mir-181 microRNA precursor family: an 83-nucleotide RNA from Aramus guarauna.

RNA sequence: AGGUUCCGGAGAACAUUCAACGCUGUCGGUGAGUUUUGUGGCUGAGGUGAAACCAUCGACCGUUGCGUGUGCCCCGUGGCCCA
Numbered sequence: 001a002g003g004u005u006c007c008g009g010a011g012a013a014c015a016u017u018c019a020a021c022g023c024u025g026u027c028g029g030u031g032a033g034u035u036u037u038g039u040g041g042c043u044g045a046g047g048u049g050a051a052a053c054c055a056u057c058g059a060c061c062g063u064u065g066c067g068u069g070u071g072c073c074c075c076g077u078g079g080c081c082c083a
Stems, first nucleotide, its partner, number of pairs: 002082002004079002007076002014069003018065005025060007033053004